[Rfam]
Shown here is a 118-nucleotide RNA, a member of the family "LOOT RNA".

RNA sequence: AGCCUAAACCUUUAGAAAUAGAGGCAUGGUGAAUAAAGUCUAGUGAAGCUUAAAGAACCCAUCAUGGGGUCGCUUCACUAGCCAUAUAGGGAAACCUAUAUGAGAGACUUAGGUCUCU
Numbered sequence: 001a002g003c004c005u006a007a008a009c010c011u012u013u014a015g016a017a018a019u020a021g022a023g024g025c026a027u028g029g030u031g032a033a034u035a036a037a038g039u040c041u042a043g044u045g046a047a048g049c050u051u052a053a054a055g056a057a058c059c060c061a062u063c064a065u066g067g068g069g070u071c072g073c074u075u076c077a078c079u080a081g082c083c084a085u086a087u088a089g090g091g092a093a094a095c096c097u098a099u100a101u102g103a104g105a106g107a108c109u110u111a112g113g114u115c116u117c118u
Stems, first nucleotide, its partner, number of pairs: 002030003009024006040081010055071002058068003083102008103118006